RNA sequence: UGCGUCGAUGUGGGAGAGACCGGGCAACCGGCGCCGAAGGAGCAACCGCCCCGGAAACUCUCAGGCAAAAGGACCACAUGGACGAC
Numbered sequence: 001u002g003c004g005u006c007g008a009u010g011u012g013g014g015a016g017a018g019a020c021c022g023g024g025c026a027a028c029c030g031g032c033g034c035c036g037a038a039g040g041a042g043c044a045a046c047c048g049c050c051c052c053g054g055a056a057a058c059u060c061u062c063a064g065g066c067a068a069a070a071g072g073a074c075c076a077c078a079u080g081g082a083c084g085a086c
Stems, first nucleotide, its partner, number of pairs: 006081001008079006020031004033066003036062002040060003046054002
Dot-bracket structure: .....(.((((((......((((....)))).(((((..(((...((.....))...))))).))).......)))))).).....
RNA: Glycine riboswitch aptamer